[Rfam]
RNA sequence: UCCAUCGUGAGGUGGAAUCUGAAGGAAGCUGGAGGCAAACUCUCGACCUGAGGGACACGAAUCACAUCUGAGGCUGUCAUAGUCGGACGAGUUGCCUGAACACAACAAAGUCCCAAGUUGCCAAGGGCUACGGCAGUAAAUGUGGCAGGUGCAUGAGAGGAAAGAGUCCGUU
Numbered sequence: 001u002c003c004a005u006c007g008u009g010a011g012g013u014g015g016a017a018u019c020u021g022a023a024g025g026a027a028g029c030u031g032g033a034g035g036c037a038a039a040c041u042c043u044c045g046a047c048c049u050g051a052g053g054g055a056c057a058c059g060a061a062u063c064a065c066a067u068c069u070g071a072g073g074c075u076g077u078c079a080u081a082g083u084c085g086g087a088c089g090a091g092u093u094g095c096c097u098g099a100a101c102a103c104a105a106c107a108a109a110g111u112c113c114c115a116a117g118u119u120g121c122c123a124a125g126g127g128c129u130a131c132g133g134c135a136g137u138a139a140a141u142g143u144g145g146c147a148g149g150u151g152c153a154u155g156a157g158a159g160g161a162a163a164g165a166g167u168c169c170g171u172u
Stems, first nucleotide, its partner, number of pairs: 001016006028172001030170003036164001040159006046150005062145006073137003077133002080130004085113004091106004
RNA: Group II catalytic intron D1-D4-3
Organism: Alicyclobacillus sp. SO9